The family of this 199-nucleotide RNA sequence from Panicum miliaceum is "MIR1435 microRNA precursor family". A search with the family's covariance model found it, with a score of 103 bits. The family has 3 seed sequences and 1,765 matches in Rfam 15.1. Gene Ontology terms of the family: miRNA-mediated post-transcriptional gene silencing and RISC complex.

RNA sequence: UUGUUUUGUCCUAAGUCAAACUAAGCGAACUUUGACCAAGUUUAUAGGAAAAUAUAUAACAACUAUACUACCAAAUAUAUGCACUAUCAAAAUAUAUUCCAUAUUGGAUUCAAUGAAAUAAAUUUGAUAUUGUAAAUGUUGUUAUAUUUUCCUAUAAACUUGGUCAAAGUUGGAUAAGUUUGACUUUAGACAAAUUAAA
Numbered sequence: 001u002u003g004u005u006u007u008g009u010c011c012u013a014a015g016u017c018a019a020a021c022u023a024a025g026c027g028a029a030c031u032u033u034g035a036c037c038a039a040g041u042u043u044a045u046a047g048g049a050a051a052a053u054a055u056a057u058a059a060c061a062a063c064u065a066u067a068c069u070a071c072c073a074a075a076u077a078u079a080u081g082c083a084c085u086a087u088c089a090a091a092a093u094a095u096a097u098u099c100c101a102u103a104u105u106g107g108a109u110u111c112a113a114u115g116a117a118a119u120a121a122a123u124u125u126g127a128u129a130u131u132g133u134a135a136a137u138g139u140u141g142u143u144a145u146a147u148u149u150u151c152c153u154a155u156a157a158a159c160u161u162g163g164u165c166a167a168a169g170u171u172g173g174a175u176a177a178g179u180u181u182g183a184c185u186u187u188a189g190a191c192a193a194a195u196u197a198a199a
Base pairs, nucleotide, nucleotide: 005194006193007192008191009190013186014185015184016183017182018181019180020179021178022177024175026173031168032167033166034165035164045154046153047152048151049150050149051148052147055144056143058140059139060138061137064134065133066132067131072126073125074124075123076122